[Rfam]
RNA sequence: GGUUUUGUAGUGUAAUUAACAUAUUAGAUUGCAAAUCUAUAGAUGCGGCCAGUUUAUCCGCCAAAACUU
Numbered sequence: 001g002g003u004u005u006u007g008u009a010g011u012g013u014a015a016u017u018a019a020c021a022u023a024u025u026a027g028a029u030u031g032c033a034a035a036u037c038u039a040u041a042g043a044u045g046c047g048g049c050c051a052g053u054u055u056a057u058c059c060g061c062c063a064a065a066a067c068u069u
Base pairs, nucleotide, nucleotide: 001068002067003066004065005064006063007062010022011021012020013019025039026038027037028036045061046060047059048058
Background: A member of the RNA family "tRNA", 69 nucleotides long. It is annotated as a transfer RNA. Rfam describes the family as follows. Transfer RNA (tRNA) molecules are approximately 80 nucleotides in length.